About this RNA:
U8 small nucleolar RNA: a 131-nucleotide RNA sequence from Pongo abelii.

RNA sequence: UUGUCAGCUGGGAUAAUCUUUACCUGUUCCUUCUUUUGGAGGGCAAAUUAGGACAUGAUUGGGGUUCACAUGAUAUGCGAUUAACAUCUCAGUAAUCAGGACUUACAGCACCCUGAUUGCGCCUAUCUGAU
Numbered sequence: 001u002u003g004u005c006a007g008c009u010g011g012g013a014u015a016a017u018c019u020u021u022a023c024c025u026g027u028u029c030c031u032u033c034u035u036u037u038g039g040a041g042g043g044c045a046a047a048u049u050a051g052g053a054c055a056u057g058a059u060u061g062g063g064g065u066u067c068a069c070a071u072g073a074u075a076u077g078c079g080a081u082u083a084a085c086a087u088c089u090c091a092g093u094a095a096u097c098a099g100g101a102c103u104u105a106c107a108g109c110a111c112c113c114u115g116a117u118u119g120c121g122c123c124u125a126u127c128u129g130a131u
Base pairs, nucleotide, nucleotide: 025045026044028043029042030041031040032039033038072090073089075087076086077085092120093119094118095117096116097115098114099113100112
Description:
It scores 102 bits against the family's covariance model. The literature on the family includes a 2010 paper in Nucleic Acids Res by Hokii et al., "A small nucleolar RNA functions in rRNA processing in Caenorhabditis elegans".